Rfam assigns this 89-nucleotide sequence to the family "GA-cis RNA".
The family's consensus secondary structure is taken from published work.
It is one of the family's seed sequences.
It is annotated as a small RNA.
RNA sequence: CUGAGGGAAGAACCAUCAUGACGAAGUCAUGAUCUUAUAAUGUUCCGACCGAUAGGCCACCGAACGAAUGUGAGGGGGCAAUACCUAUU
Number, nucleotide and partner (000 for none) at each position: 001c000002u000003g000004a000005g000006g000007g000008a000009a000010g045011a044012a043013c042014c000015a000016u032017c031018a030019u029020g028021a027022c000023g000024a000025a000026g000027u021028c020029a019030u018031g017032a016033u000034c000035u000036u000037a000038u000039a000040a000041u000042g013043u012044u011045c010046c000047g000048a000049c000050c000051g000052a000053u000054a000055g000056g079057c078058c077059a000060c075061c074062g000063a000064a071065c070066g000067a000068a000069u000070g065071u064072g000073a000074g061075g060076g000077g058078g057079c056080a000081a000082u000083a000084c000085c000086u000087a000088u000089u000